The record is a 127-nucleotide RNA sequence from Fenollaria massiliensis, which matches "Streptococcus sRNA SpR18" in Rfam.
By type it is a small RNA.
The match comes from Rfam's covariance-model search (61 bits).
The organism belongs to Fenollaria, within Bacteria.
On this family, see Mann et al., PLoS Pathog 2012: "Control of virulence by small RNAs in Streptococcus pneumoniae".
[Rfam]
RNA sequence: CUCAAAGCUUAAAUAUUACUGAUAAUGUAACUCGGAUUAUAAUGGAAACAUUUGUAAAAAAUAAAUUAAAUAAUAAUUCUAAGUGCUUUGUGCUUGGAAAAAAAUCAGACCAUAACUUACUUAUUAU
Numbered sequence: 001c002u003c004a005a006a007g008c009u010u011a012a013a014u015a016u017u018a019c020u021g022a023u024a025a026u027g028u029a030a031c032u033c034g035g036a037u038u039a040u041a042a043u044g045g046a047a048a049c050a051u052u053u054g055u056a057a058a059a060a061a062u063a064a065a066u067u068a069a070a071u072a073a074u075a076a077u078u079c080u081a082a083g084u085g086c087u088u089u090g091u092g093c094u095u096g097g098a099a100a101a102a103a104a105u106c107a108g109a110c111c112a113u114a115a116c117u118u119a120c121u122u123a124u125u126a127u
Stems, first nucleotide, its partner, number of pairs: 007032001009030003013026002035120001042113004050062004077098001079097007